[Rfam]
RNA sequence: GAAAUCUAUAUGAGCCACUCAGGGCCUUCGGUAAGACCCUUCGUAUGAAUUUUUGGAGACCCCUGCUGAGGCAGGGGCUA
Numbered sequence: 001g002a003a004a005u006c007u008a009u010a011u012g013a014g015c016c017a018c019u020c021a022g023g024g025c026c027u028u029c030g031g032u033a034a035g036a037c038c039c040u041u042c043g044u045a046u047g048a049a050u051u052u053u054u055g056g057a058g059a060c061c062c063c064u065g066c067u068g069a070g071g072c073a074g075g076g077g078c079u080a
Stems, first nucleotide, its partner, number of pairs: 022039003026035003058079001060077007
RNA: SmY spliceosomal RNA